RNA sequence: UAAAUAAAGAGUUUGAUCCUGGCUCAGGACGAACGCUGGCGGCACGCUUAACACAUGCAAGUCGAACGGAGAACAUUGAGCUUGCUUAAUGUUCUUAGUGGCGGACGGGUGAGUAACACGUGAGUAACCUGCCUCUGAGAGUGGGAUAGCUUCUGGAAACGGAUGGUAAUACCGCAUAACAUCAUGGAUUCGCAUGUUUCUAUGAUCAAAGAUUUAUCGCUUAGAGAUGGACUCGCGUCUGAUUAGCUAGUUGGUAAGGUAACGGCUUACCAAGGCGACGAUCAGUAGCCGGACUGAGAGGUUGAUCGGCCACAUUGGGACUGAGACACGGCCCAGACUCCUACGGGAGGCAGCAGUGGGGAAUAUUGCACAAUGGGGGAAACCCUGAUGCAGCGAUGCCGCGUGGAGGAAGAAGGUUUUCGGAUUGUAAACUCCUGUUGAAGAGGACGAUAAUGACGGUACUCUUUUAGAAAGCUCCGGCUAACUACGUGCCAGCAGCCGCGGUAAUACGUAGGGAGCGAGCGUUGUCCGGAAUUACUG
Dot-bracket structure: ........(((((.......))))).((((.((((((.(((((((((....(((.(((..(((..((.((...(((((((....))))))).))...)))))......(((......((((((((..((...(((((((.((((.....(.((((....)))).)......)))).....(((((((...(....)...)))))))....((....)).)))))))..))))))))))(((....(((..((((((((.......)))))))))))......)))..((((((((....))))...))))))).(((((............))))).((((....))))...)))))).).....(.(((...(((((....))))).)))).)).))))))..((((......((((....)))).....))))...(((((((...(.......)....))))))...)..(((((......(((((.....((....)).......)))))))))).))))))))))..........
RNA: Bacterial small subunit ribosomal RNA, nucleotides 1 to 540